[Rfam]
RNA sequence: UUUUAAAACUAGGGGUGUCCAAAUAGUUGGGCUGAGAGAGAAACGCGAUAUAGUUUCUUAACCCUCAGGACCUGAUCUGGUUCAUACCAGCGUGGGGAAGUUAGAAUUUACACUU
Numbered sequence: 001u002u003u004u005a006a007a008a009c010u011a012g013g014g015g016u017g018u019c020c021a022a023a024u025a026g027u028u029g030g031g032c033u034g035a036g037a038g039a040g041a042a043a044c045g046c047g048a049u050a051u052a053g054u055u056u057c058u059u060a061a062c063c064c065u066c067a068g069g070a071c072c073u074g075a076u077c078u079g080g081u082u083c084a085u086a087c088c089a090g091c092g093u094g095g096g097g098a099a100g101u102u103a104g105a106a107u108u109u110a111c112a113c114u115u
Stems, first nucleotide, its partner, number of pairs: 007102004011065004017032005039058005071096004077090004

Annotation
TPP riboswitch aptamer (THI element): a 115-nucleotide sequence from Gottfriedia endophytica. It scores 76 bits against the family's covariance model. Vitamin B(1) in its active form thiamin pyrophosphate (TPP) is an essential coenzyme that is synthesised by coupling of pyrimidine and thiazole moieties in bacteria.